[Rfam]
This 137-nucleotide sequence from Humidesulfovibrio mexicanus belongs to the Rfam family "c-di-AMP riboswitch aptamer (ydaO/yuaA leader)".
On this family, see Barrick et al., Proc Natl Acad Sci U S A 2004: "New RNA motifs suggest an expanded scope for riboswitches in bacterial genetic control".
NCBI's taxonomy places the organism under Bacteria, Pseudomonadati, Desulfovibrionales, Desulfovibrionaceae, Humidesulfovibrio.
RNA sequence: UGAAUGCCGUUGCCGAAUUCCGGGUUUCUCCCUGGAAGCGGGGAACCCACUCCCUUGGGGCGCAUCGCUUGAAAAAGCGUAGGACACCUUUCGGUCCGAGCCCGACAGCUAACCUCGCAGGCAUCGACAGGGUAGCC
Numbered sequence: 001u002g003a004a005u006g007c008c009g010u011u012g013c014c015g016a017a018u019u020c021c022g023g024g025u026u027u028c029u030c031c032c033u034g035g036a037a038g039c040g041g042g043g044a045a046c047c048c049a050c051u052c053c054c055u056u057g058g059g060g061c062g063c064a065u066c067g068c069u070u071g072a073a074a075a076a077g078c079g080u081a082g083g084a085c086a087c088c089u090u091u092c093g094g095u096c097c098g099a100g101c102c103c104g105a106c107a108g109c110u111a112a113c114c115u116c117g118c119a120g121g122c123a124u125c126g127a128c129a130g131g132g133u134a135g136c137c
Stems, first nucleotide, its partner, number of pairs: 011123004018037007038118006048057002058103003066079004082097004